[Rfam]
RNA sequence: GGGGCAGGAUCGGGAGAAUCCGGUCGGGUGGCUUUGGAGCCGCCUUUCCGGUGCCGAAGGAGCAACCGCCCCGGUAAACUCUCAGGCGCAAGGGACCGUUCCUGCAUG
Numbered sequence: 001g002g003g004g005c006a007g008g009a010u011c012g013g014g015a016g017a018a019u020c021c022g023g024u025c026g027g028g029u030g031g032c033u034u035u036g037g038a039g040c041c042g043c044c045u046u047u048c049c050g051g052u053g054c055c056g057a058a059g060g061a062g063c064a065a066c067c068g069c070c071c072c073g074g075u076a077a078a079c080u081c082u083c084a085g086g087c088g089c090a091a092g093g094g095a096c097c098g099u100u101c102c103u104g105c106a107u108g
Stems, first nucleotide, its partner, number of pairs: 006103004011098003020051004053087003056083002060081003066074002
This 108-nucleotide RNA sequence from Pseudogemmobacter humi belongs to the Rfam family "Glycine riboswitch aptamer". The pairing is the family consensus, mapped onto this sequence. It scores 58 bits against the family's covariance model.